[Rfam]
RNA sequence: CUGCAUUUUGAACCCUCCUGGCAGCGCCGUUAUCAGCUUCCAGGGUGAGAGUGAAUACCAGAGAAAACUGUUGAUUAAUCCAAAACAUCGAGCUCCCCCCCCUUGGCUCUGCAUUACUUUACAUCUUCAACAUUC
Numbered sequence: 001c002u003g004c005a006u007u008u009u010g011a012a013c014c015c016u017c018c019u020g021g022c023a024g025c026g027c028c029g030u031u032a033u034c035a036g037c038u039u040c041c042a043g044g045g046u047g048a049g050a051g052u053g054a055a056u057a058c059c060a061g062a063g064a065a066a067a068c069u070g071u072u073g074a075u076u077a078a079u080c081c082a083a084a085a086c087a088u089c090g091a092g093c094u095c096c097c098c099c100c101c102c103u104u105g106g107c108u109c110u111g112c113a114u115u116a117c118u119u120u121a122c123a124u125c126u127u128c129a130a131c132a133u134u135c
Stems, first nucleotide, its partner, number of pairs: 003058001005056002007051003016045006023038003063135002069129002073125002084115002088111001090109001092107002
A member of the RNA family "Small nucleolar RNA SNORA14" from Amazona aestiva, 135 nucleotides long.
The base pairs follow the family's consensus structure, which was predicted with RNAfold.
NCBI's taxonomy places the organism under Eukaryota, Sauria, Coelurosauria, Australaves, Amazona.
Its family is annotated with nucleolus and RNA processing in the Gene Ontology.
The family has 18 seed sequences and 848 matches in Rfam 15.1.